[Rfam]
RNA sequence: CACUUCGGUCCGGAGUUGAUGGGUUAUCAAUAAUUGUUUCGUUUCCUGUUCGCAGGAGACAACCCCGGUUUCCUUGUGAAACCAAAACCGUUCUCUCGGGAACAAAACCUCUUCUCGUGUUCUGUUAAAGAAUACAUAACCCUUCCCAUCAACACCAACUUGACCGAAAU
Numbered sequence: 001c002a003c004u005u006c007g008g009u010c011c012g013g014a015g016u017u018g019a020u021g022g023g024u025u026a027u028c029a030a031u032a033a034u035u036g037u038u039u040c041g042u043u044u045c046c047u048g049u050u051c052g053c054a055g056g057a058g059a060c061a062a063c064c065c066c067g068g069u070u071u072c073c074u075u076g077u078g079a080a081a082c083c084a085a086a087a088c089c090g091u092u093c094u095c096u097c098g099g100g101a102a103c104a105a106a107a108c109c110u111c112u113u114c115u116c117g118u119g120u121u122c123u124g125u126u127a128a129a130g131a132a133u134a135c136a137u138a139a140c141c142c143u144u145c146c147c148a149u150c151a152a153c154a155c156c157a158a159c160u161u162g163a164c165c166g167a168a169a170u
Base pairs, nucleotide, nucleotide: 002170004168006166007165008164009163010162012156013155015153016152017151018150019149020148021147022146023145042059043058044057045056046055047054048053069081070080071079072078090135091134094131095130
Dot-bracket structure: .(.(.(((((.((.(((((((((..................(((((((....))))))).........((((.....))))........((..((..................................))..)).........))))))))).)).....))))).).)

Rfam assigns this 170-nucleotide sequence from Caenorhabditis briggsae to the family "Nematode sRNA ceN72-3_ceN74-2".
The family has 13 seed sequences and 521 matches in Rfam 15.1.
NCBI's taxonomy places the organism under Eukaryota, Opisthokonta, Bilateria, Protostomia, Caenorhabditis.
The match comes from Rfam's covariance-model search (82 bits).
Pairs were carried over by alignment from the consensus structure, which was predicted with WAR.